Background: Small nucleolar RNA snoR77: a 126-nucleotide RNA from Cynara cardunculus. It scores 101 bits against the family's covariance model. On this family, see Marker et al., Curr Biol 2002: "Experimental RNomics: identification of 140 candidates for small non-messenger RNAs in the plant Arabidopsis thaliana". Lineage of the source: Eukaryota > Viridiplantae > Carduoideae > Cynara cardunculus > Cynara cardunculus subsp. cardunculus. It is annotated as an H/ACA-box small nucleolar RNA.

RNA sequence: AGGCAACCACCUUUGUGAAUCACUCGGAAGGUAGGUGUUAUUCUGAUCGUAAAUCAAUUUCUUAUGCUCUUCAGAUUUGUUGAGAUUCAAACUCUAUGAAGCUGGUCUAGUAAGCCUAAGUACAUU
Numbered sequence: 001a002g003g004c005a006a007c008c009a010c011c012u013u014u015g016u017g018a019a020u021c022a023c024u025c026g027g028a029a030g031g032u033a034g035g036u037g038u039u040a041u042u043c044u045g046a047u048c049g050u051a052a053a054u055c056a057a058u059u060u061c062u063u064a065u066g067c068u069c070u071u072c073a074g075a076u077u078u079g080u081u082g083a084g085a086u087u088c089a090a091a092c093u094c095u096a097u098g099a100a101g102c103u104g105g106u107c108u109a110g111u112a113a114g115c116c117u118a119a120g121u122a123c124a125u126u
Base pairs, nucleotide, nucleotide: 002039003038004037005036007035008034009032010031011030012029013028014027017024061120062119063118066115067114068113073108074107075106076105077104079102080101081100084094085093